Bacterial large signal recognition particle RNA: a 252-nucleotide sequence from Allolucifera butyrica.
A search with the family's covariance model found it, with a score of 102 bits.
The signal recognition particle (SRP) is a universally conserved ribonucleoprotein involved in the co-translational targeting of proteins to membranes.
The family's RNA type in Rfam is non-coding RNA gene.
The base pairs follow the family's consensus structure, which is taken from published work.

RNA sequence: UGGUUGAAGGAGCACGACUGGAAAUCGUGUGUACUGACAAAACGGUACCGAGGGUUCGAAUCCCUCUCUCUCCGCCAUUUUUGUUUCUAAGGUCGGACCACGGCUGUUGCCGGGUCUUGCGCAAUAGAAGCUCAUGAACCCCGUCAGGUCCGGAAGGAAGCAGCGGUAAGUGAUAACUUGUAUGUGCCGUAAGGGUGCCUGGUUUGAUAGUCGUGGCCCGACGUUGGAAACAGAGAUAAGAGAUGACGGCAG
Numbered sequence: 001u002g003g004u005u006g007a008a009g010g011a012g013c014a015c016g017a018c019u020g021g022a023a024a025u026c027g028u029g030u031g032u033a034c035u036g037a038c039a040a041a042a043c044g045g046u047a048c049c050g051a052g053g054g055u056u057c058g059a060a061u062c063c064c065u066c067u068c069u070c071u072c073c074g075c076c077a078u079u080u081u082u083g084u085u086u087c088u089a090a091g092g093u094c095g096g097a098c099c100a101c102g103g104c105u106g107u108u109g110c111c112g113g114g115u116c117u118u119g120c121g122c123a124a125u126a127g128a129a130g131c132u133c134a135u136g137a138a139c140c141c142c143g144u145c146a147g148g149u150c151c152g153g154a155a156g157g158a159a160g161c162a163g164c165g166g167u168a169a170g171u172g173a174u175a176a177c178u179u180g181u182a183u184g185u186g187c188c189g190u191a192a193g194g195g196u197g198c199c200u201g202g203u204u205u206g207a208u209a210g211u212c213g214u215g216g217c218c219c220g221a222c223g224u225u226g227g228a229a230a231c232a233g234a235g236a237u238a239a240g241a242g243a244u245g246a247c248g249g250c251a252g
Base pairs, nucleotide, nucleotide: 001252003250004249005248006247009057010056011055012030013029014028015027016026017025019023034054035053038050063245065243066242067241068240069239077237078236079235080234082232083231084230085229086228087227088226089225090224095219096218098216099215100214101213102212103211109203110202111201112200113199114198115197116193117192118191119190120189121188122184123183125182126181128179129178132173133172134171135170141166142165143164144163149158150157151156